[Rfam]
RNA sequence: CCCAGAGAAAUUGAAAGUGCAGGGCCUUUCUCAAGACCCCAAGUACAAUUUUUGCAACCCUGCCAGAAUUUAGUUGGUAGGGUA
Dot-bracket structure: .....................(((.(((....))).))).................(((((((((.........))))))))).
Description:
SmY spliceosomal RNA: an 84-nucleotide sequence from Caenorhabditis remanei. The family's RNA type in Rfam is spliceosomal small nuclear RNA. For this family Rfam cites "A novel family of C. elegans snRNPs contains proteins associated with trans-splicing" (MacMorris et al., RNA, 2007). The family's consensus secondary structure is taken from published work. Lineage of the source: Eukaryota > Opisthokonta > Nematoda > Rhabditida > Caenorhabditis.